[Rfam]
RNA sequence: UGGCAUGGUCAACUGCGGUGCGAUUAAUUCGUGCUGAGGAAAAUCCGCUCUAGCACUUUCUGAAAUGAAAGUAGUGUUCACGCUAGAUCAAAGAAAUCUAGACAACUAAAGAAAUUUUAGUUGAUGACUAGUGCAACAGAGACGAGCUUAUUAAUUUAAGUAUGCAACGAUGUAAACUCCGUGAGCUAGAAACCCAAAUUUUGGUAGGGGAACUAGAAAAGGGGAACUUUUUAACCUAAUUCUGGAGACUAAUGCAAAUUAGUUUAGAUAGAUAGUUGACGCCAUAAUUUUUAUGGAACAAAAAGCGGUUUACAGUG
Numbered sequence: 001u002g003g004c005a006u007g008g009u010c011a012a013c014u015g016c017g018g019u020g021c022g023a024u025u026a027a028u029u030c031g032u033g034c035u036g037a038g039g040a041a042a043a044u045c046c047g048c049u050c051u052a053g054c055a056c057u058u059u060c061u062g063a064a065a066u067g068a069a070a071g072u073a074g075u076g077u078u079c080a081c082g083c084u085a086g087a088u089c090a091a092a093g094a095a096a097u098c099u100a101g102a103c104a105a106c107u108a109a110a111g112a113a114a115u116u117u118u119a120g121u122u123g124a125u126g127a128c129u130a131g132u133g134c135a136a137c138a139g140a141g142a143c144g145a146g147c148u149u150a151u152u153a154a155u156u157u158a159a160g161u162a163u164g165c166a167a168c169g170a171u172g173u174a175a176a177c178u179c180c181g182u183g184a185g186c187u188a189g190a191a192a193c194c195c196a197a198a199u200u201u202u203g204g205u206a207g208g209g210g211a212a213c214u215a216g217a218a219a220a221g222g223g224g225a226a227c228u229u230u231u232u233a234a235c236c237u238a239a240u241u242c243u244g245g246a247g248a249c250u251a252a253u254g255c256a257a258a259u260u261a262g263u264u265u266a267g268a269u270a271g272a273u274a275g276u277u278g279a280c281g282c283c284a285u286a287a288u289u290u291u292u293a294u295g296g297a298a299c300a301a302a303a304a305g306c307g308g309u310u311u312a313c314a315g316u317g
Base pairs, nucleotide, nucleotide: 004317005316006315007313008280009279010278011277012276013275014274016036017035018034019033020032021031041311042310043309045308046307047306048305049304050189051188052187053186054185055072056071057070058069059068060067078184079183080182081181082180083101084100085099086098087097088096102125103123104122105121106120107119108118109117110116111115126179127178131177132176133173134172135171146161147160148159149158150157193209194208195207213245214244215243216242217241218240246265247264248263249262250261251260252259253258282296283295284294285293286292
Rfam assigns this 317-nucleotide RNA sequence from Metamycoplasma arthritidis to the family "Bacterial RNase P class B". NCBI's taxonomy places the organism under Bacteria, Bacillati, Metamycoplasmataceae, Metamycoplasma, Metamycoplasma arthritidis. Its family is annotated with ribonuclease P activity, dimeric ribonuclease P complex and tRNA processing in the Gene Ontology. The match comes from Rfam's covariance-model search (197 bits). Rfam's curators write: Ribonuclease P (RNase P) is a ubiquitous endoribonuclease, found in archaea, bacteria and eukarya as well as chloroplasts and mitochondria.